[Rfam]
Nucleotides: 084
Base pairs, nucleotide, nucleotide: 001015002014009032010031011030016025018023036060037059038058039057040056045080046079047078048077049076
Number, partner (000 for none) and nucleotide at each position: 001015c002014c003000u004000c005000u006000a007000u008000u009032c010031a011030c012000c013000c014002g015001g016025c017000u018023c019000g020000a021000a022000a023018g024000c025016g026000g027000c028000g029000g030011g031010u032009g033000u034000u035000c036060c037059u038058c039057g040056g041000a042000u043000u044000a045080g046079a047078c048077g049076g050000u051000g052000a053000g054000u055000g056040c057039c058038g059037a060036g061000g062000c063000g064000c065000c066000a067000a068000c069000a070000a071000a072000a073000a074000c075000c076049c077048c078047g079046u080045c081000a082000g083000c084000c